[Rfam]
RNA: mir-130 microRNA precursor family
Organism: Danionella cerebrum
RNA sequence: UUUUGUCCACUGCCCUUUUUCUGUUGGACUACUGGCCAAUCAGAAGAGCAGUGCAAUAUUAAAAGGGCAUUGGCUGAUA
Numbered sequence: 001u002u003u004u005g006u007c008c009a010c011u012g013c014c015c016u017u018u019u020u021c022u023g024u025u026g027g028a029c030u031a032c033u034g035g036c037c038a039a040u041c042a043g044a045a046g047a048g049c050a051g052u053g054c055a056a057u058a059u060u061a062a063a064a065g066g067g068c069a070u071u072g073g074c075u076g077a078u079a
Base pairs, nucleotide, nucleotide: 002079005075007073008072009071012068013067014066015065016064017063018062019061022058023057024056025055026054028052029051030050